This 109-nucleotide sequence from Dichotomicrobium thermohalophilum belongs to the Rfam family "EcpR1". The match comes from Rfam's covariance-model search (63 bits). Rfam's curators write: Perviously named SmelC291, SmrC10, or Sra33. According to its overproduction phenotype it was renamed Elongated Cell Phenotype RNA1. Induced by stress,EcpR1 negatively regulates cell cycle master regulatory genes dnaA and gcrA at post-transcriptional level by base pairing between its strongly conserved GC-rich loop and the target mRNAs. It's regulation is hfq-independent but requires RNase E to regulate dnaA. Rfam classes the family as a small RNA. For this family Rfam cites "Deep sequencing uncovers numerous small RNAs on all four replicons of the plant pathogen Agrobacterium tumefaciens" (Wilms et al., RNA Biol, 2012). NCBI's taxonomy places the organism under Bacteria, Pseudomonadati, Alphaproteobacteria, Hyphomicrobiales, Dichotomicrobium.
[Rfam]
RNA sequence: GUUUCCCCCGGCUCGCCAGGUUCGCCGCAUCUCCUGGCUUGGGGGAUAGGCCGGAUGGUGCGCGGUUGAGUGGCCUCCUCGCAAGCGCCGGUACCAUCUCGGCCAACAA
Numbered sequence: 001g002u003u004u005c006c007c008c009c010g011g012c013u014c015g016c017c018a019g020g021u022u023c024g025c026c027g028c029a030u031c032u033c034c035u036g037g038c039u040u041g042g043g044g045g046a047u048a049g050g051c052c053g054g055a056u057g058g059u060g061c062g063c064g065g066u067u068g069a070g071u072g073g074c075c076u077c078c079u080c081g082c083a084a085g086c087g088c089c090g091g092u093a094c095c096a097u098c099u100c101g102g103c104c105a106a107c108a109a
Base pairs, nucleotide, nucleotide: 004046005045006044007043008042009041010040015038016037017036018035019034020033049104050103051102052101053100054099055097056096057095058094